[Rfam]
RNA: S-element
Organism: Pararhizobium polonicum
RNA sequence: CGUCAAGAGCUUUUGGCACCGUUUUGGUGAGCGGAUUUCUUUUGCCUUUUGAAAGGUAGAAGACAAUG
Numbered sequence: 001c002g003u004c005a006a007g008a009g010c011u012u013u014u015g016g017c018a019c020c021g022u023u024u025u026g027g028u029g030a031g032c033g034g035a036u037u038u039c040u041u042u043u044g045c046c047u048u049u050u051g052a053a054a055g056g057u058a059g060a061a062g063a064c065a066a067u068g
Stems, first nucleotide, its partner, number of pairs: 009064001011062004018057003022054006029047001031045005